[Rfam]
RNA sequence: UAUGAAUCUCAAUUUUGUCUUCUUUUUCUUCUUUUUUAGCUACUCUUAAAUAAGGGGCUUUUGUCGUUCGAGAAAAAAAAGAAGACAAUAUUUUAAAGCCCCCUACUAGGGGGCUUUUUUUAU
Numbered sequence: 001u002a003u004g005a006a007u008c009u010c011a012a013u014u015u016u017g018u019c020u021u022c023u024u025u026u027u028c029u030u031c032u033u034u035u036u037u038a039g040c041u042a043c044u045c046u047u048a049a050a051u052a053a054g055g056g057g058c059u060u061u062u063g064u065c066g067u068u069c070g071a072g073a074a075a076a077a078a079a080a081g082a083a084g085a086c087a088a089u090a091u092u093u094u095a096a097a098g099c100c101c102c103c104u105a106c107u108a109g110g111g112g113g114c115u116u117u118u119u120u121u122a123u
Stems, first nucleotide, its partner, number of pairs: 016090003021085005027080001029078002032075003036071002039068001043054002056065003095117010

Overview: The record is a 123-nucleotide RNA sequence from Providencia heimbachae, which matches "Phenylalanine leader peptide" in Rfam. Rfam 15.1 lists 379 matches to the family in 290 species. Taxonomically the source falls in Providencia heimbachae (Bacteria, Pseudomonadati, Pseudomonadota, Gammaproteobacteria). It is annotated as a cis-regulatory leader. It scores 76 bits against the family's covariance model.